[Rfam]
RNA sequence: GUACUUAUCAAGCAGAGGAGAUAUGAUGAUCACAAAGGUGGGUUUUUUUUCCAGGACAAGCCUUAUCCAUUGCACUAAGGAUGCACUGAUCCUUGCAGUUUUCCCAAAUGUGGGAACCUCAGCUGUGUAACUUUUGAGGUGGUAUGGGACUGUGUUCACAUUUUCCUCCA
Number, nucleotide and partner (000 for none) at each position: 001g000002u000003a000004c000005u000006u000007a000008u000009c000010a000011a000012g126013c125014a124015g123016a000017g051018g050019a049020g048021a047022u000023a046024u000025g044026a043027u042028g000029a000030u000031c000032a000033c000034a000035a000036a000037g000038g000039u000040g000041g000042g027043u026044u025045u000046u023047u021048u020049u019050u018051c017052c000053a094054g093055g092056a000057c000058a090059a000060g087061c000062c000063u000064u083065a082066u081067c080068c079069a000070u000071u000072g000073c000074a000075c000076u000077a000078a000079g068080g067081a066082u065083g064084c000085a000086c000087u060088g000089a000090u058091c000092c055093u054094u053095g000096c000097a119098g118099u000100u116101u115102u000103c113104c112105c000106a000107a000108a000109u000110g000111u000112g104113g103114g000115a101116a100117c000118c098119u097120c000121a000122g000123c015124u014125g013126u012127g000128u000129a000130a000131c000132u000133u000134u000135u000136g000137a000138g000139g000140u000141g000142g000143u000144a000145u000146g167147g166148g165149a164150c000151u000152g161153u160154g159155u000156u000157c000158a000159c154160a153161u152162u000163u000164u149165c148166c147167u146168c000169c000170a000

U1 spliceosomal RNA: a 170-nucleotide RNA from Sciurus vulgaris. The match comes from Rfam's covariance-model search (70 bits). The source organism's lineage runs through Eukaryota, Gnathostomata, Theria, Sciurini and Sciurus.